[Rfam]
RNA sequence: CUCUGGUUCAGCAGAUGCAUCAGGGCAAAGGAG
Numbered sequence: 001c002u003c004u005g006g007u008u009c010a011g012c013a014g015a016u017g018c019a020u021c022a023g024g025g026c027a028a029a030g031g032a033g
Stems, first nucleotide, its partner, number of pairs: 001025007